A member of the RNA family "Group II catalytic intron D1-D4-5" from Anaerotignum neopropionicum, 204 nucleotides long. A reference for the family is Bonen and Vogel (2001), "The ins and outs of group II introns", Trends Genet. Rfam 15.1 lists 720 matches to the family in 418 species. NCBI's taxonomy places the organism under Bacteria, Bacillati, Bacillota, Lachnospirales, Anaerotignum. Rfam links the family to the GO term Group II intron splicing. Rfam's curators write: Group II introns are found in rRNA, tRNA and mRNA of organelles in fungi, plants and protists, and also in mRNA in bacteria.
[Rfam]
RNA sequence: GAGAACUAACAAUUCGAUAGGUGGAAUGAGGGAGUAACGACCUAAAACGCCUACACUGAUACUCCGAUUGGCGGUGGUAAUAGACUACCUAACCGUCAAAAGCUCGGUGAAGUCGGCAGAGAGUGACCGUAAGUAAAGGAUUUUUCUUUACACGAAAGCUGUUCAGCGGUGAAUGGUGUCACCUAUAUGUCGGGUGUCGAAUAC
Numbered sequence: 001g002a003g004a005a006c007u008a009a010c011a012a013u014u015c016g017a018u019a020g021g022u023g024g025a026a027u028g029a030g031g032g033a034g035u036a037a038c039g040a041c042c043u044a045a046a047a048c049g050c051c052u053a054c055a056c057u058g059a060u061a062c063u064c065c066g067a068u069u070g071g072c073g074g075u076g077g078u079a080a081u082a083g084a085c086u087a088c089c090u091a092a093c094c095g096u097c098a099a100a101a102g103c104u105c106g107g108u109g110a111a112g113u114c115g116g117c118a119g120a121g122a123g124u125g126a127c128c129g130u131a132a133g134u135a136a137a138g139g140a141u142u143u144u145u146c147u148u149u150a151c152a153c154g155a156a157a158g159c160u161g162u163u164c165a166g167c168g169g170u171g172a173a174u175g176g177u178g179u180c181a182c183c184u185a186u187a188u189g190u191c192g193g194g195u196g197u198c199g200a201a202u203a204c
Stems, first nucleotide, its partner, number of pairs: 018053006031043002054196004064107004068099008077088003114192005123182005128154003136149005158177008